This 79-nucleotide RNA sequence from Pelobacter propionicus belongs to the Rfam family "c-di-GMP-I riboswitch aptamer". The family's consensus secondary structure is taken from published work. Rfam 15.1 lists 5,092 matches to the family in 1,772 species. Taxonomically the source falls in Pelobacter propionicus (Bacteria, Desulfuromonadales, Desulfuromonadaceae, Pelobacter). On this family, see Weinberg et al., Nucleic Acids Res 2007: "Identification of 22 candidate structured RNAs in bacteria using the CMfinder comparative genomics pipeline".
RNA sequence: UCGCCGAAAGGGUAAAGCACGGGUAACCGUGUGGCACAAAGCCACCAUCCAGAAUGGUCUGGAUAGCGGGGCUGUCGAA
Numbered sequence: 001u002c003g004c005c006g007a008a009a010g011g012g013u014a015a016a017g018c019a020c021g022g023g024u025a026a027c028c029g030u031g032u033g034g035c036a037c038a039a040a041g042c043c044a045c046c047a048u049c050c051a052g053a054a055u056g057g058u059c060u061g062g063a064u065a066g067c068g069g070g071g072c073u074g075u076c077g078a079a
Stems, first nucleotide, its partner, number of pairs: 012037002017032006040073004045069002047064007